This 82-nucleotide sequence from Podospora anserina belongs to the Rfam family "tRNA". The organism belongs to Podospora, within Eukaryota. It is annotated as a transfer RNA. It is one of the family's seed sequences. Its family is annotated with triplet codon-amino acid adaptor activity in the Gene Ontology.

[Rfam]
RNA sequence: GGCGCGAUGGCAGAGUGGUCUAAUGCGUGAGACUUCAAAUCUCAUUUCUUCGGAAGCGUCGGUUCAAAUCCGGCUCGCGUCG
Numbered sequence: 001g002g003c004g005c006g007a008u009g010g011c012a013g014a015g016u017g018g019u020c021u022a023a024u025g026c027g028u029g030a031g032a033c034u035u036c037a038a039a040u041c042u043c044a045u046u047u048c049u050u051c052g053g054a055a056g057c058g059u060c061g062g063u064u065c066a067a068a069u070c071c072g073g074c075u076c077g078c079g080u081c082g
Base pairs, nucleotide, nucleotide: 001081002080003079004078005077006076007075010026011025012024028044029043030042031041032040058074059073060072061071062070